[Rfam]
RNA sequence: GCACCGGAUAGGCCGACGGGCCGAAGAGGCGGACACCCGACCGCCCUGCCGGUGCAUCUCAAUCGGGG
Numbered sequence: 001g002c003a004c005c006g007g008a009u010a011g012g013c014c015g016a017c018g019g020g021c022c023g024a025a026g027a028g029g030c031g032g033a034c035a036c037c038c039g040a041c042c043g044c045c046c047u048g049c050c051g052g053u054g055c056a057u058c059u060c061a062a063u064c065g066g067g068g
Base pairs, nucleotide, nucleotide: 001055002054003053004052005051006050007049011022012021013020014019028045029044030043031042032041036068037067038066
The record is a 68-nucleotide RNA sequence from Pseudorhodoferax sp. Leaf274, which matches "int-alpA RNA" in Rfam. The family's consensus secondary structure is taken from published work. Acidobacteria (1 example), Planctomycetes (1 example), Proteobacteria. Lineage of the source: Bacteria > Betaproteobacteria > Burkholderiales > Comamonadaceae > Pseudorhodoferax.